[Rfam]
RNA sequence: AAAUGUCAGUGAUGUUUUUUUUACCUACAUUGUUUGAUUAUCUAAAUGAAAAACAUCUUAGACUGAGACAUUC
Dot-bracket structure: .(.((((...........................................................)))).).

Rfam assigns this 73-nucleotide RNA from Xenopus tropicalis to the family "Small nucleolar RNA SNORD34".
snoRNA U34 is found in intron 5 of the ribosomal protein L13a gene in humans.
Rfam 15.1 lists 1,319 matches to the family in 583 species.
It is annotated as a C/D-box small nucleolar RNA.
Clan: SNORD34 clan.
A reference for the family is Chen et al. (2003), "The high diversity of snoRNAs in plants: identification and comparative study of 120 snoRNA genes from Oryza sativa", Nucleic Acids Res.